[Rfam]
RNA sequence: UAACCCAUGCUGAAAGGCAUGGCUGAACCGGCAGGAGUCAGCAGAGGGCAUAGUACCUUGGAGGUCAUGAACUUCGAGGGAAGGCC
Numbered sequence: 001u002a003a004c005c006c007a008u009g010c011u012g013a014a015a016g017g018c019a020u021g022g023c024u025g026a027a028c029c030g031g032c033a034g035g036a037g038u039c040a041g042c043a044g045a046g047g048g049c050a051u052a053g054u055a056c057c058u059u060g061g062a063g064g065u066c067a068u069g070a071a072c073u074u075c076g077a078g079g080g081a082a083g084g085c086c
Stems, first nucleotide, its partner, number of pairs: 001025002005022007038045002047086003056079006
RNA: Group II catalytic intron D1-D4-1
Organism: Fervidicola ferrireducens